Annotation: The family of this 76-nucleotide sequence from Junco hyemalis is "mir-9/mir-79 microRNA precursor family". NCBI's taxonomy places the organism under Eukaryota, Bilateria, Chordata, Passeriformes, Junco. The family's consensus secondary structure was predicted with RNAalifold.

RNA sequence: GGGUUUUUCUCUUUGGUUAUCUAGCUGUAUGAGUGUAUGUGAUAUCAUAAAGCUAGAGAACCGAAUGUAAAAACCC
Number, nucleotide and partner (000 for none) at each position: 001g076002g075003g074004u073005u072006u000007u070008u069009c000010u067011c000012u065013u064014u063015g062016g061017u060018u059019a000020u057021c056022u055023a054024g053025c052026u051027g000028u049029a048030u047031g046032a045033g000034u000035g000036u000037a000038u000039g000040u000041g000042a000043u000044a000045u032046c031047a030048u029049a028050a000051a026052g025053c024054u023055a022056g021057a020058g000059a018060a017061c016062c015063g014064a013065a012066u000067g010068u000069a008070a007071a000072a005073a004074c003075c002076c001